[Rfam]
RNA: Small nucleolar RNA SNORA42/SNORA80 family
RNA sequence: GCAUGGUGAUGGAUUUAUGACGGGCCCGUCCAAGUAGGCCUUCCACAGUGUGCCAUGCAAGAGCAAAGUGCGCCUCGAACCAUUGCCCAGCCUCUGCUGUGGGCUGAGAGCACUGAAGGGGGCGGCACCAUG
Numbered sequence: 001g002c003a004u005g006g007u008g009a010u011g012g013a014u015u016u017a018u019g020a021c022g023g024g025c026c027c028g029u030c031c032a033a034g035u036a037g038g039c040c041u042u043c044c045a046c047a048g049u050g051u052g053c054c055a056u057g058c059a060a061g062a063g064c065a066a067a068g069u070g071c072g073c074c075u076c077g078a079a080c081c082a083u084u085g086c087c088c089a090g091c092c093u094c095u096g097c098u099g100u101g102g103g104c105u106g107a108g109a110g111c112a113c114u115g116a117a118g119g120g121g122g123c124g125g126c127a128c129c130a131u132g
Stems, first nucleotide, its partner, number of pairs: 001058008015048002018045002022041003025037001071124005081115002086110001088106006
Dot-bracket structure: ((((((((......((.((..((((...........).)))..)).))..))))))))............(((((.....((...(.((((((.......))))))...)...))....)))))........